[Rfam]
RNA sequence: CGCUAGCAGCCGCCCCGGGCAGGAUGGCGCCCGUGUCCUUGGCGUGACGUCUAAUCGGUGCGGCGAGAU
Numbered sequence: 001c002g003c004u005a006g007c008a009g010c011c012g013c014c015c016c017g018g019g020c021a022g023g024a025u026g027g028c029g030c031c032c033g034u035g036u037c038c039u040u041g042g043c044g045u046g047a048c049g050u051c052u053a054a055u056c057g058g059u060g061c062g063g064c065g066a067g068a069u
Stems, first nucleotide, its partner, number of pairs: 009064005015058002022052005028044004
Dot-bracket structure: ........(((((.((.....(((((.((((.........))))...)))))....)).))))).....
Trypanosomatid snoRNA TB10Cs3H2: a 69-nucleotide sequence from Trypanosoma brucei. The family has 6 seed sequences and 47 matches in Rfam 15.1. By type it is an H/ACA-box small nucleolar RNA.